[Rfam]
RNA sequence: AAAGCGGGCCGGGCCCCUCUGACGUAGUCGACACCCCCAUGUCGAACGUGAUGUCGGACCGCAUCG
Numbered sequence: 001a002a003a004g005c006g007g008g009c010c011g012g013g014c015c016c017c018u019c020u021g022a023c024g025u026a027g028u029c030g031a032c033a034c035c036c037c038c039a040u041g042u043c044g045a046a047c048g049u050g051a052u053g054u055c056g057g058a059c060c061g062c063a064u065c066g
Base pairs, nucleotide, nucleotide: 006060007059009057010056011055012054022049023048024047025046028045029044030043031042032041033040
terC RNA: a 66-nucleotide RNA from Caulobacter vibrioides. By type it is a cis-regulatory element. Taxonomically the source falls in Caulobacter vibrioides (Bacteria, Pseudomonadati, Pseudomonadota, Caulobacter).